Shown here is a 32-nucleotide RNA sequence, a member of the family "XIST RNA A repeat".
A reference for the family is Duszczyk et al. (2011), "The Xist RNA A-repeat comprises a novel AUCG tetraloop fold and a platform for multimerization", RNA.

RNA sequence: UGGCCCAUCGGGGUGACGGAUAUCUGCUUUUU
Numbered sequence: 001u002g003g004c005c006c007a008u009c010g011g012g013g014u015g016a017c018g019g020a021u022a023u024c025u026g027c028u029u030u031u032u
Stems, first nucleotide, its partner, number of pairs: 003014004017026003